Shown here is a 67-nucleotide RNA sequence from Pipistrellus kuhlii, a member of the family "mir-9256 microRNA precursor family". The family's consensus secondary structure was predicted with RNAalifold. It scores 80 bits against the family's covariance model.
RNA sequence: AUAUAUACUGAGUGGUCAGAUUAUUAUGCACUCAGAGAUCAUAAUAAUCUGGCCACUCAGUGUAAAC
Numbered sequence: 001a002u003a004u005a006u007a008c009u010g011a012g013u014g015g016u017c018a019g020a021u022u023a024u025u026a027u028g029c030a031c032u033c034a035g036a037g038a039u040c041a042u043a044a045u046a047a048u049c050u051g052g053c054c055a056c057u058c059a060g061u062g063u064a065a066a067c
Stems, first nucleotide, its partner, number of pairs: 004064014019049010